[Rfam]
RNA sequence: UUUCUAUUAAGAGAGGUGGAGGGACUGGCCCGUCGAAACCUCGGCAACAUAAUGUGCCAAUUCCAGCAAGCAUUGCUUGAAAGAUAGAAA
Numbered sequence: 001u002u003u004c005u006a007u008u009a010a011g012a013g014a015g016g017u018g019g020a021g022g023g024a025c026u027g028g029c030c031c032g033u034c035g036a037a038a039c040c041u042c043g044g045c046a047a048c049a050u051a052a053u054g055u056g057c058c059a060a061u062u063c064c065a066g067c068a069a070g071c072a073u074u075g076c077u078u079g080a081a082a083g084a085u086a087g088a089a090a
Stems, first nucleotide, its partner, number of pairs: 001090008013042005021031003025066004043058004048054002062082001067079005

Shown here is a 90-nucleotide RNA sequence from Metabacillus litoralis, a member of the family "SAM riboswitch aptamer (S box leader)". The base pairs follow the family's consensus structure, which is taken from published work. On this family, see Grundy and Henkin, Mol Microbiol 1998: "The S box regulon: a new global transcription termination control system for methionine and cysteine biosynthesis genes in gram-positive bacteria". The organism belongs to Metabacillus, within Bacteria. It scores 86 bits against the family's covariance model.